[Rfam]
RNA: SAH (S-adenosyl-L-homocysteine) riboswitch aptamer
Organism: Actinoplanes missouriensis
RNA sequence: CCGCCCGAGAGGCGCUGCAACGGACGUCUCACGUCCGCCACGCUCGGCCGGGUUCCAUGACGCAAGGGCGCCUCCUGAGA
Numbered sequence: 001c002c003g004c005c006c007g008a009g010a011g012g013c014g015c016u017g018c019a020a021c022g023g024a025c026g027u028c029u030c031a032c033g034u035c036c037g038c039c040a041c042g043c044u045c046g047g048c049c050g051g052g053u054u055c056c057a058u059g060a061c062g063c064a065a066g067g068g069c070g071c072c073u074c075c076u077g078a079g080a
Stems, first nucleotide, its partner, number of pairs: 002050002005047004021037006